RNA sequence: GGCCUCCCAGUGCUCACCACAGGCUGUGUUCUUACACUGACUGCACAGAAAGAAGAGGCAGUAUACCCACCCGUAUACACCUCAGCACAGCUCUUUGCCUGGUCUGUAUUGUGGAUGGGGGGGAUCAG
Numbered sequence: 001g002g003c004c005u006c007c008c009a010g011u012g013c014u015c016a017c018c019a020c021a022g023g024c025u026g027u028g029u030u031c032u033u034a035c036a037c038u039g040a041c042u043g044c045a046c047a048g049a050a051a052g053a054a055g056a057g058g059c060a061g062u063a064u065a066c067c068c069a070c071c072c073g074u075a076u077a078c079a080c081c082u083c084a085g086c087a088c089a090g091c092u093c094u095u096u097g098c099c100u101g102g103u104c105u106g107u108a109u110u111g112u113g114g115a116u117g118g119g120g121g122g123g124a125u126c127a128g
Base pairs, nucleotide, nucleotide: 002059003058004057005056006055020043021042022041026037027036028035029034070119071118072117073116074115083106084105085104088101089100090099092097
The family of this 128-nucleotide RNA sequence from Molossus molossus is "Small nucleolar RNA SNORA51". Gene Ontology terms of the family: RNA processing and nucleolus. Pairs were carried over by alignment from the consensus structure, which was predicted with PFOLD. By type it is an H/ACA-box small nucleolar RNA. ACA51 is a member of the H/ACA class of snoRNA that guide the sites of modification of uridines to pseudouridines.